RNA sequence: CACCGCGUGAGUACUGGCUGUUUGUGUCUCCGCCAUUGCCAAUCAGCUGUCAUUAACCACGCAAUACCGUACAGAGGUGCUAAAUUACCGUGAAAACCACUUUAAAAAUUGGUCACUCGGAGGAGGCACCUCAACAUUU
Numbered sequence: 001c002a003c004c005g006c007g008u009g010a011g012u013a014c015u016g017g018c019u020g021u022u023u024g025u026g027u028c029u030c031c032g033c034c035a036u037u038g039c040c041a042a043u044c045a046g047c048u049g050u051c052a053u054u055a056a057c058c059a060c061g062c063a064a065u066a067c068c069g070u071a072c073a074g075a076g077g078u079g080c081u082a083a084a085u086u087a088c089c090g091u092g093a094a095a096a097c098c099a100c101u102u103u104a105a106a107a108a109u110u111g112g113u114c115a116c117u118c119g120g121a122g123g124a125g126g127c128a129c130c131u132c133a134a135c136a137u138u139u
Stems, first nucleotide, its partner, number of pairs: 005062005011057002013050002016048005022042003026039002074132008085122002088120003092114002097112003
RNA: Caenorhabditis snoRNA ceN51